Notes
Rfam assigns this 29-nucleotide RNA from Erithacus rubecula to the family "togavirus ribosomal frameshift element". Its family is annotated with viral translational frameshifting in the Gene Ontology. The match comes from Rfam's covariance-model search (40 bits). The organism belongs to Erithacus, within Eukaryota. The family's consensus secondary structure is taken from published work.
RNA sequence: GGGGAUGGUCAGCACUGCUGGUCAUCCCC
Numbered sequence: 001g002g003g004g005a006u007g008g009u010c011a012g013c014a015c016u017g018c019u020g021g022u023c024a025u026c027c028c029c
Stems, first nucleotide, its partner, number of pairs: 001029007010020004